[Rfam]
RNA: c-di-GMP-I riboswitch aptamer
Organism: Clostridium sp. SM-530-WT-3G
RNA sequence: ACAAUUUAAUAGCAAAGCUGAAGAAAUUCAGUGACGCAAAACUAUAGGGGCUAAAGAUAUUUGAACUAUGCUUGCCAGUUGCCGGA
Dot-bracket structure: ...........((...((((((....))))))...))..((((...(((((....(.(.....).)...)))..))))))......
Numbered sequence: 001a002c003a004a005u006u007u008a009a010u011a012g013c014a015a016a017g018c019u020g021a022a023g024a025a026a027u028u029c030a031g032u033g034a035c036g037c038a039a040a041a042c043u044a045u046a047g048g049g050g051c052u053a054a055a056g057a058u059a060u061u062u063g064a065a066c067u068a069u070g071c072u073u074g075c076c077a078g079u080u081g082c083c084g085g086a
Stems, first nucleotide, its partner, number of pairs: 012037002017032006040080004047076002049072003056066001058064001